Aggregatibacter sRNA 22: a 107-nucleotide RNA sequence from Rodentibacter trehalosifermentans.
[Rfam]
RNA sequence: CUGCGGUCACAAAAACAACGUUUUUUGAACGUUGGCUUGACCAACAGCCCCGAAGGGAUGAAUAAAUCACUCCAGUGAUUUAUGAAUAAUUCUACCGUAGUUUUGAA
Numbered sequence: 001c002u003g004c005g006g007u008c009a010c011a012a013a014a015a016c017a018a019c020g021u022u023u024u025u026u027g028a029a030c031g032u033u034g035g036c037u038u039g040a041c042c043a044a045c046a047g048c049c050c051c052g053a054a055g056g057g058a059u060g061a062a063u064a065a066a067u068c069a070c071u072c073c074a075g076u077g078a079u080u081u082a083u084g085a086a087u088a089a090u091u092c093u094a095c096c097g098u099a100g101u102u103u104u105g106a107a
Stems, first nucleotide, its partner, number of pairs: 010027005015021002031045005047059001049057003062083009086104001088102004
Notes: The match comes from Rfam's covariance-model search (68 bits). The organism belongs to Rodentibacter, within Bacteria. The family's RNA type in Rfam is small RNA.